RNA sequence: UUCUUAUCAAGAGCAGGUGGAGGGACAAGCCCGAUGAUACCCGGCAACCGACUACCCUUUGCGACCCAAAGGCAGGCACGGUGCUAAUUCUUGCGGAACGCUUCGCGAAGCGAAUCCGGGAGAUAAGAG
Numbered sequence: 001u002u003c004u005u006a007u008c009a010a011g012a013g014c015a016g017g018u019g020g021a022g023g024g025a026c027a028a029g030c031c032c033g034a035u036g037a038u039a040c041c042c043g044g045c046a047a048c049c050g051a052c053u054a055c056c057c058u059u060u061g062c063g064a065c066c067c068a069a070a071g072g073c074a075g076g077c078a079c080g081g082u083g084c085u086a087a088u089u090c091u092u093g094c095g096g097a098a099c100g101c102u103u104c105g106c107g108a109a110g111c112g113a114a115u116c117c118g119g120g121a122g123a124u125a126a127g128a129g
Stems, first nucleotide, its partner, number of pairs: 001129008013042001016041003022032003026093004043085004048081002050077001052075002089121001094118004
The family of this 129-nucleotide RNA sequence from Paenibacillus lycopersici is "SAM riboswitch aptamer (S box leader)". The SAM riboswitch is found upstream of a number of genes which code for proteins involved in methionine or cysteine biosynthesis in Gram-positive bacteria. The base pairs follow the family's consensus structure, which is taken from published work. Rfam links the family to the GO term regulation of gene expression.